[Rfam]
A member of the RNA family "MIR1520 microRNA precursor family" from Glycine soja, 117 nucleotides long. The match comes from Rfam's covariance-model search (72 bits). Rfam links the family to the GO terms miRNA-mediated post-transcriptional gene silencing and RISC complex. Pairs were carried over by alignment from the consensus structure, which was predicted with RNAalifold.
RNA sequence: UUUUGAUUUAACGAUGACAUGUGUCAUAUUCUUAUCGAAUGUUGACUCUAUGAACGAUGAAAAUGUAUCGUUGUUAUCAACAUUGAAUCAAAAUGUGACACGUGACAAUUAACAUUC
Number, nucleotide and partner (000 for none) at each position: 001u000002u000003u000004u000005g000006a000007u000008u000009u000010a000011a000012c000013g000014a000015u000016g106017a000018c104019a103020u000021g101022u100023g000024u000025c097026a096027u095028a000029u093030u092031c000032u090033u000034a088035u087036c000037g000038a000039a000040u000041g000042u000043u000044g000045a000046c000047u000048c000049u000050a000051u000052g000053a000054a000055c000056g000057a000058u000059g000060a000061a000062a000063a000064u000065g000066u000067a000068u000069c000070g000071u000072u000073g000074u000075u000076a000077u000078c000079a000080a000081c000082a000083u000084u000085g000086a000087a035088u034089c000090a032091a000092a030093a029094u000095g027096u026097g025098a000099c000100a022101c021102g000103u019104g018105a000106c016107a000108a000109u000110u000111a000112a000113c000114a000115u000116u000117c000